[Rfam]
RNA sequence: GACAAACAGUGUGAGAAACACUGUCGCCGAAAGUCCAAGGGUUCCUGCGCAAGGUUAAUCCACGCAGGGUGAGCCGGCCCCUAAGGCGAGGCCGAAAGGCGUAGUCGAUGGGAACCAGGUUAAUAGUCCUGGGCCUGGCGGAGGUGACGGAUGGGAAAGCGUGUAUGUCCUUAUCGGAUUGGACAUGCUGUGGACCUGUUCCAGGAAAUAGCCCCGCCGUAUAGACCGUACCCCAAACCGACACAGGUGGACUGGUAGAGUAUACCCAGGCGCU
Dot-bracket structure: .....((((((.......))))))((((....((((..((...((((((...((.....)).))))))......(((..((...(((.(.(((....))).).)))...))...(((((........)))))..(((..((.(.(...(((((((..(..((((..((((.....))))...))..))..)...)))))))........).).))..))....).)))..)).....((......)).)))).((((.....))))..))))..
Numbered sequence: 001g002a003c004a005a006a007c008a009g010u011g012u013g014a015g016a017a018a019c020a021c022u023g024u025c026g027c028c029g030a031a032a033g034u035c036c037a038a039g040g041g042u043u044c045c046u047g048c049g050c051a052a053g054g055u056u057a058a059u060c061c062a063c064g065c066a067g068g069g070u071g072a073g074c075c076g077g078c079c080c081c082u083a084a085g086g087c088g089a090g091g092c093c094g095a096a097a098g099g100c101g102u103a104g105u106c107g108a109u110g111g112g113a114a115c116c117a118g119g120u121u122a123a124u125a126g127u128c129c130u131g132g133g134c135c136u137g138g139c140g141g142a143g144g145u146g147a148c149g150g151a152u153g154g155g156a157a158a159g160c161g162u163g164u165a166u167g168u169c170c171u172u173a174u175c176g177g178a179u180u181g182g183a184c185a186u187g188c189u190g191u192g193g194a195c196c197u198g199u200u201c202c203a204g205g206a207a208a209u210a211g212c213c214c215c216g217c218c219g220u221a222u223a224g225a226c227c228g229u230a231c232c233c234c235a236a237a238c239c240g241a242c243a244c245a246g247g248u249g250g251a252c253u254g255g256u257a258g259a260g261u262a263u264a265c266c267c268a269g270g271c272g273c274u
Stems, first nucleotide, its partner, number of pairs: 006024006025272004033252004039232002044068006053061002075228003080111002085106003089102001091100003115132005135224001136219002140215002143212001145210001149201007158191001161188002163184002167179004238247002254266004